[Rfam]
The record is a 138-nucleotide RNA sequence from Helicobacter apodemus, which matches "Bacterial antisense RNA HPnc0260" in Rfam.
For this family Rfam cites "The primary transcriptome of the major human pathogen Helicobacter pylori" (Sharma et al., Nature, 2010).
RNA sequence: CUAAAUCAAAAUGCAAAGAUUUUACUAACUUUCUAUUAAAAAAUGGCUUUAUUAACCAAAAACUAGAAUCCAAAGAAUAUAAAAAUGAAGAUUAUUUAGUGGUGGCCACGACUGGACUUGAACCAGCGACCACUACCA
Numbered sequence: 001c002u003a004a005a006u007c008a009a010a011a012u013g014c015a016a017a018g019a020u021u022u023u024a025c026u027a028a029c030u031u032u033c034u035a036u037u038a039a040a041a042a043a044u045g046g047c048u049u050u051a052u053u054a055a056c057c058a059a060a061a062a063c064u065a066g067a068a069u070c071c072a073a074a075g076a077a078u079a080u081a082a083a084a085a086u087g088a089a090g091a092u093u094a095u096u097u098a099g100u101g102g103u104g105g106c107c108a109c110g111a112c113u114g115g116a117c118u119u120g121a122a123c124c125a126g127c128g129a130c131c132a133c134u135a136c137c138a
Stems, first nucleotide, its partner, number of pairs: 017030002020027001052066003100135006109128002112126004